[Rfam]
RNA: Group II catalytic intron D1-D4-6
RNA sequence: CAAGUCUCAUCCGGCCAAAGCUGUAGCAGGCAAGCCGGGACCGAGUUUUGAGGGCGUCGCGGCAACGUGAGGUCCGAAGUGCAGACAGGAGCCAUGCGGGGGACUGGAAUGAGCCUUGAAAGGUGGAUGUUCGCGGAGACCGAGUGUGGUCCCUAGUCACGAAGGCAACAGGAGCAUCGUCGCUAUGCGAGACGAUGCCGCUCCGUCGGGGGUCGAUGGCCG
Numbered sequence: 001c002a003a004g005u006c007u008c009a010u011c012c013g014g015c016c017a018a019a020g021c022u023g024u025a026g027c028a029g030g031c032a033a034g035c036c037g038g039g040a041c042c043g044a045g046u047u048u049u050g051a052g053g054g055c056g057u058c059g060c061g062g063c064a065a066c067g068u069g070a071g072g073u074c075c076g077a078a079g080u081g082c083a084g085a086c087a088g089g090a091g092c093c094a095u096g097c098g099g100g101g102g103a104c105u106g107g108a109a110u111g112a113g114c115c116u117u118g119a120a121a122g123g124u125g126g127a128u129g130u131u132c133g134c135g136g137a138g139a140c141c142g143a144g145u146g147u148g149g150u151c152c153c154u155a156g157u158c159a160c161g162a163a164g165g166c167a168a169c170a171g172g173a174g175c176a177u178c179g180u181c182g183c184u185a186u187g188c189g190a191g192a193c194g195a196u197g198c199c200g201c202u203c204c205g206u207c208g209g210g211g212g213u214c215g216a217u218g219g220c221c222g
Stems, first nucleotide, its partner, number of pairs: 011038005020031002024190001026188002041089002045086004049081002052075004057070005110216001111214001113213003116209003133206006140165002144160003172199001174198008